The record is an 87-nucleotide sequence from Bacillus sp. HNG, which matches "c-di-GMP-I riboswitch aptamer" in Rfam. NCBI's taxonomy places the organism under Bacteria, Bacillati, Bacillota, Bacilli, Bacillus.
RNA sequence: CGUACGAAAUGGCAAAAUCAUUGAAAAAUGAUAACGCAAAACUAAAGGGGUUACAAGUCUUUUGGACUAUGCCAGCCAGCUCCCGAA
Numbered sequence: 001c002g003u004a005c006g007a008a009a010u011g012g013c014a015a016a017a018u019c020a021u022u023g024a025a026a027a028a029u030g031a032u033a034a035c036g037c038a039a040a041a042c043u044a045a046a047g048g049g050g051u052u053a054c055a056a057g058u059c060u061u062u063u064g065g066a067c068u069a070u071g072c073c074a075g076c077c078a079g080c081u082c083c084c085g086a087a
Base pairs, nucleotide, nucleotide: 012037013036017032018031019030020029021028022027040081042079043078047077048076049073050072051071058065059064
Dot-bracket structure: ...........((...((((((....))))))...))..(.((...(((((......((....)).....)))..)))).)......